Rfam assigns this 58-nucleotide RNA sequence to the family "pemK RNA".
[Rfam]
RNA sequence: AUAAUGAUACUUCCCUAAGGGGCUGGUGGAAAACCCGGCAGAGGUGAAACUCCUAUGA
Numbered sequence: 001a002u003a004a005u006g007a008u009a010c011u012u013c014c015c016u017a018a019g020g021g022g023c024u025g026g027u028g029g030a031a032a033a034c035c036c037g038g039c040a041g042a043g044g045u046g047a048a049a050c051u052c053c054u055a056u057g058a
Stems, first nucleotide, its partner, number of pairs: 012055001013022003023041003027037003042054003

The base pairs follow the family's consensus structure, which is taken from published work.